[Rfam]
RNA sequence: GCAGGGAUAGCCAAGUUUGGCCAACGGCGCAGCGUUCAGGGCGCUGUCCCGUAGGGGUCCGCAGGUUCAAAUCCUGCUCCCUGCA
Numbered sequence: 001g002c003a004g005g006g007a008u009a010g011c012c013a014a015g016u017u018u019g020g021c022c023a024a025c026g027g028c029g030c031a032g033c034g035u036u037c038a039g040g041g042c043g044c045u046g047u048c049c050c051g052u053a054g055g056g057g058u059c060c061g062c063a064g065g066u067u068c069a070a071a072u073c074c075u076g077c078u079c080c081c082u083g084c085a
Stems, first nucleotide, its partner, number of pairs: 001084007010028003030046005061077005
RNA: tRNA
Organism: Haloarcula marismortui